[Rfam]
RNA sequence: UGCCGGCCCUUGAGUGAGCCUCCUUACCGGACCGGCGCAUCCUGACUUCACUUCCCCGAUGUCAGGCAGCGCCGGCCCCGGUGGGGGAGCAGAUUCAAGGGCCGGAUUGGU
Numbered sequence: 001u002g003c004c005g006g007c008c009c010u011u012g013a014g015u016g017a018g019c020c021u022c023c024u025u026a027c028c029g030g031a032c033c034g035g036c037g038c039a040u041c042c043u044g045a046c047u048u049c050a051c052u053u054c055c056c057c058g059a060u061g062u063c064a065g066g067c068a069g070c071g072c073c074g075g076c077c078c079c080g081g082u083g084g085g086g087g088a089g090c091a092g093a094u095u096c097a098a099g100g101g102c103c104g105g106a107u108u109g110g111u
Stems, first nucleotide, its partner, number of pairs: 010098006018090002021087010032075007041066006048059001

The record is a 111-nucleotide RNA sequence from Nesterenkonia alkaliphila, which matches "mraW RNA" in Rfam. Rfam classes the family as a cis-regulatory element. Lineage of the source: Bacteria > Bacillati > Actinomycetota > Micrococcales > Nesterenkonia. The family's consensus secondary structure is taken from published work.